A member of the RNA family "c-di-AMP riboswitch aptamer (ydaO/yuaA leader)" from Sphaerisporangium album, 140 nucleotides long.
[Rfam]
RNA sequence: GACGUUGAAUCUCCGAGGCCCGCAACGGCCGAGGGGAACCGGGGACCCAUGUCCUUCGGGGUGAAUCCGCGCGAGCGGUAGGGAUCGACUCCAAGCCCGAACCCGUCAGCUAACCCGGUAGACGUGAUUGGAGAGGAGAC
Dot-bracket structure: ..((((...(((((..................)))))((((((....(.........)(((.....((((....))))..(((............)))...))).........)))))).))))................
Numbered sequence: 001g002a003c004g005u006u007g008a009a010u011c012u013c014c015g016a017g018g019c020c021c022g023c024a025a026c027g028g029c030c031g032a033g034g035g036g037a038a039c040c041g042g043g044g045a046c047c048c049a050u051g052u053c054c055u056u057c058g059g060g061g062u063g064a065a066u067c068c069g070c071g072c073g074a075g076c077g078g079u080a081g082g083g084a085u086c087g088a089c090u091c092c093a094a095g096c097c098c099g100a101a102c103c104c105g106u107c108a109g110c111u112a113a114c115c116c117g118g119u120a121g122a123c124g125u126g127a128u129u130g131g132a133g134a135g136g137a138g139a140c
Stems, first nucleotide, its partner, number of pairs: 003124004010037005038119006048058001059104003067078004081098003